[Rfam]
RNA sequence: UGGGUUGGCCAGGCGGCCGCGUGGGGAGUACCAGAUACUCCUCCCGAGGAACGUCCGGGCUCCACAGGGCAGGGUGGUGGGUAACGCCCACUCGGGGUAACCCGCAGGACAGUGCCACAGAGAAUAGACCGCCCCGGCAGUCCGCUGCACGGGGUAAGGGUGAAAAGGUGGUGUAAGAGACCACCAGCGCGCCGGGUGACCGGCGCGGCUAGGUAAACCCCACCCGGAGCAAGGCCAGACAGGGCGCGCUUGAAGGCUGCCCGCCUGAGCGCCCGGGUAGGCCGCUGGAGGGCGUCGGCAACGGCGCUCGUAGAUGGAUGGCCGCCACUGCAGGCGUUCGACGUCGGCAGGACAGAACCCGGCGUAUCGGCCAGCCCAUCCU
Numbered sequence: 001u002g003g004g005u006u007g008g009c010c011a012g013g014c015g016g017c018c019g020c021g022u023g024g025g026g027a028g029u030a031c032c033a034g035a036u037a038c039u040c041c042u043c044c045c046g047a048g049g050a051a052c053g054u055c056c057g058g059g060c061u062c063c064a065c066a067g068g069g070c071a072g073g074g075u076g077g078u079g080g081g082u083a084a085c086g087c088c089c090a091c092u093c094g095g096g097g098u099a100a101c102c103c104g105c106a107g108g109a110c111a112g113u114g115c116c117a118c119a120g121a122g123a124a125u126a127g128a129c130c131g132c133c134c135c136g137g138c139a140g141u142c143c144g145c146u147g148c149a150c151g152g153g154g155u156a157a158g159g160g161u162g163a164a165a166a167g168g169u170g171g172u173g174u175a176a177g178a179g180a181c182c183a184c185c186a187g188c189g190c191g192c193c194g195g196g197u198g199a200c201c202g203g204c205g206c207g208g209c210u211a212g213g214u215a216a217a218c219c220c221c222a223c224c225c226g227g228a229g230c231a232a233g234g235c236c237a238g239a240c241a242g243g244g245c246g247c248g249c250u251u252g253a254a255g256g257c258u259g260c261c262c263g264c265c266u267g268a269g270c271g272c273c274c275g276g277g278u279a280g281g282c283c284g285c286u287g288g289a290g291g292g293c294g295u296c297g298g299c300a301a302c303g304g305c306g307c308u309c310g311u312a313g314a315u316g317g318a319u320g321g322c323c324g325c326c327a328c329u330g331c332a333g334g335c336g337u338u339c340g341a342c343g344u345c346g347g348c349a350g351g352a353c354a355g356a357a358c359c360c361g362g363c364g365u366a367u368c369g370g371c372c373a374g375c376c377c378a379u380c381c382u
Stems, first nucleotide, its partner, number of pairs: 001378010011367001012326007020046002023043006051365003055362005060229004067262004072225005077091005092106001093104004107220002112218002114214003129159002131155005136148001138147003167185006187209001188207008233283004242274006254266004290309008
About this RNA: This 382-nucleotide RNA sequence from Arthrobacter pigmenti belongs to the Rfam family "Bacterial RNase P class A". The family's RNA type in Rfam is ribozyme. The organism belongs to Arthrobacter, within Bacteria. The base pairs follow the family's consensus structure, which is taken from published work. The match comes from Rfam's covariance-model search (308 bits).